[Rfam]
RNA sequence: CUUACGGGGAAUGUUGGCUGGCUCGAGGCAUCCACCAAGCUUCCACGAUCGCCAACGAGUCGGUCGGUGCUCGCGUGUGGAGGCGUCGGACCAGGCUUCAUUCCUCGUAAG
Numbered sequence: 001c002u003u004a005c006g007g008g009g010a011a012u013g014u015u016g017g018c019u020g021g022c023u024c025g026a027g028g029c030a031u032c033c034a035c036c037a038a039g040c041u042u043c044c045a046c047g048a049u050c051g052c053c054a055a056c057g058a059g060u061c062g063g064u065c066g067g068u069g070c071u072c073g074c075g076u077g078u079g080g081a082g083g084c085g086u087c088g089g090a091c092c093a094g095g096c097u098u099c100a101u102u103c104c105u106c107g108u109a110a111g
Stems, first nucleotide, its partner, number of pairs: 001111013016096001018094004024088003